[Rfam]
A member of the RNA family "nrdJ RNA" from Streptomyces sp. SDr-06, 83 nucleotides long. Taxonomically the source falls in Streptomyces (Bacteria, Bacillati, Kitasatosporales, Streptomycetaceae). Rfam classes the family as a small RNA. The family's consensus secondary structure is taken from published work. The match comes from Rfam's covariance-model search (72 bits).
RNA sequence: ACCUGCCAGGGGUGAGCUUCCGCUGCGCCCAUGGCAACAGACAAACACCGUGCCUCGGGAACAUUCAGGCACUUUUGGGCGUU
Numbered sequence: 001a002c003c004u005g006c007c008a009g010g011g012g013u014g015a016g017c018u019u020c021c022g023c024u025g026c027g028c029c030c031a032u033g034g035c036a037a038c039a040g041a042c043a044a045a046c047a048c049c050g051u052g053c054c055u056c057g058g059g060a061a062c063a064u065u066c067a068g069g070c071a072c073u074u075u076u077g078g079g080c081g082u083u
Stems, first nucleotide, its partner, number of pairs: 004036005010030005016023002050072006057065001
Dot-bracket structure: ...(((((.(((((.((....))..))))).))))).............((((((.(.......).))))))...........